[Rfam]
RNA sequence: GAGUCAUUACCAAGGCUUUUAGAAUGCAGUUUCUCAUUUGCUGUGAACACGACCACAACAUAUUUUCUAAUUAGGUUUUCUUUCUGCUACGUUGGUAGCAUUCAGCCUAUUGGGAACAUUU
Numbered sequence: 001g002a003g004u005c006a007u008u009a010c011c012a013a014g015g016c017u018u019u020u021a022g023a024a025u026g027c028a029g030u031u032u033c034u035c036a037u038u039u040g041c042u043g044u045g046a047a048c049a050c051g052a053c054c055a056c057a058a059c060a061u062a063u064u065u066u067c068u069a070a071u072u073a074g075g076u077u078u079u080c081u082u083u084c085u086g087c088u089a090c091g092u093u094g095g096u097a098g099c100a101u102u103c104a105g106c107c108u109a110u111u112g113g114g115a116a117c118a119u120u121u
Base pairs, nucleotide, nucleotide: 003053004052005051007049011045012044026041027040028039029038067114068113070111074107075106076105077104085100086099087098

The record is a 121-nucleotide RNA sequence from Molossus molossus, which matches "Small nucleolar RNA SNORA32" in Rfam. Taxonomically the source falls in Molossus (Eukaryota, Craniata, Tetrapoda, Molossidae). About the family: ACA32 is a member of the H/ACA class of snoRNA that guide the sites of modification of uridines to pseudouridines. It is annotated as an H/ACA-box small nucleolar RNA.